The record is an 87-nucleotide sequence from Clostridium sp. cel8, which matches "c-di-GMP-I riboswitch aptamer" in Rfam. Taxonomically the source falls in Clostridium (Bacteria, Bacillota, Eubacteriales, Clostridiaceae). The match comes from Rfam's covariance-model search (84 bits).
RNA sequence: AAUUGAUAAAGGCAAAUCCAUCUAAAGAUGGAGACGCAAAGCCACAAGUCUAAAGCAAUAAAUUGUCAUGAUGGUUGGGCUACCAAA
Numbered sequence: 001a002a003u004u005g006a007u008a009a010a011g012g013c014a015a016a017u018c019c020a021u022c023u024a025a026a027g028a029u030g031g032a033g034a035c036g037c038a039a040a041g042c043c044a045c046a047a048g049u050c051u052a053a054a055g056c057a058a059u060a061a062a063u064u065g066u067c068a069u070g071a072u073g074g075u076u077g078g079g080c081u082a083c084c085a086a087a
Base pairs, nucleotide, nucleotide: 012037013036017032018031019030020029021028022027040081041080042079043078045077046076047075048072049071050070055066056065057064058063